[Rfam]
RNA sequence: GAUCCGAUAGUAUGGCCGAAAGAUUCAUUUAUGAAUCUUUCGGCCAUACUAUCCAUUUUUCUUAUUGUAAUGUAUAAAGAUACAAACGGAA
Numbered sequence: 001g002a003u004c005c006g007a008u009a010g011u012a013u014g015g016c017c018g019a020a021a022g023a024u025u026c027a028u029u030u031a032u033g034a035a036u037c038u039u040u041c042g043g044c045c046a047u048a049c050u051a052u053c054c055a056u057u058u059u060u061c062u063u064a065u066u067g068u069a070a071u072g073u074a075u076a077a078a079g080a081u082a083c084a085a086a087c088g089g090a091a
Stems, first nucleotide, its partner, number of pairs: 006053022
Plastid-psbM 3UTR RNA: a 91-nucleotide RNA sequence from Koelreuteria paniculata. The organism belongs to Koelreuteria, within Eukaryota. Plastid psbM is a non-coding RNA (ncRNA) recognised in plastids. It was found in the three prime untranslated region (3UTR) of psbM gene, its 3UTR location suggests a role in transcript maturation. The literature on the family includes a 2023 paper in Plant Commun by Richter et al., "Retrograde signaling in plants: A critical review focusing on the GUN pathway and beyond".